[Rfam]
RNA sequence: GCGAACUCUGGAAAGCAGGACCGCGUCCUGCACCCACGGUGCAAGCCGGCUGAGAGGCCGGUGAAGCUCUCAGGUCCAAUGACAGAGCGGGGAGG
Number, nucleotide and partner (000 for none) at each position: 001g000002c000003g000004a000005a000006c087007u086008c085009u084010g083011g000012a000013a000014a000015g000016c030017a029018g028019g027020a000021c000022c000023g000024c000025g000026u000027c019028c018029u017030g016031c000032a075033c074034c073035c000036a070037c000038g000039g069040u000041g067042c000043a000044a000045g062046c061047c060048g059049g058050c000051u000052g000053a000054g000055a000056g000057g000058c049059c048060g047061g046062u045063g000064a000065a000066g000067c041068u000069c039070u036071c000072a000073g034074g033075u032076c000077c000078a000079a000080u000081g000082a000083c010084a009085g008086a007087g006088c000089g000090g000091g000092g000093a000094g000095g000
About this RNA
The record is a 95-nucleotide RNA sequence from Intrasporangium calvum, which matches "Glycine riboswitch aptamer" in Rfam. Taxonomically the source falls in Intrasporangium calvum (Bacteria, Actinomycetota, Micrococcales, Intrasporangium). The match comes from Rfam's covariance-model search (42 bits).